[Rfam]
RNA sequence: AUAUAUGCUGAGUGGCCAGGUUAUUAUGAUCUCUGACCGCAUAAUAAUUUGGCCACUCAGUAUAUAU
Dot-bracket structure: ...((((((((((((((.((((((((((...........)))))))))).))))))))))))))...
Background
A member of the RNA family "mir-9256 microRNA precursor family" from Pipistrellus kuhlii, 67 nucleotides long. The match comes from Rfam's covariance-model search (81 bits). Lineage of the source: Eukaryota > Vertebrata > Teleostomi > Tetrapoda > Pipistrellus.